A member of the RNA family "Small nucleolar RNA SNORD53/SNORD92" from Tauraco erythrolophus, 78 nucleotides long.
The family's RNA type in Rfam is C/D-box small nucleolar RNA.
The organism belongs to Tauraco, within Eukaryota.
RNA sequence: UUGCUGUGAUGACAACGCCCUUGGUUUUGCUCACUACUGAUGUGCAGUGGGGACAGUUCCACUUGGCUGGCUGAGCAG
Numbered sequence: 001u002u003g004c005u006g007u008g009a010u011g012a013c014a015a016c017g018c019c020c021u022u023g024g025u026u027u028u029g030c031u032c033a034c035u036a037c038u039g040a041u042g043u044g045c046a047g048u049g050g051g052g053a054c055a056g057u058u059c060c061a062c063u064u065g066g067c068u069g070g071c072u073g074a075g076c077a078g
Base pairs, nucleotide, nucleotide: 001078002077003076004075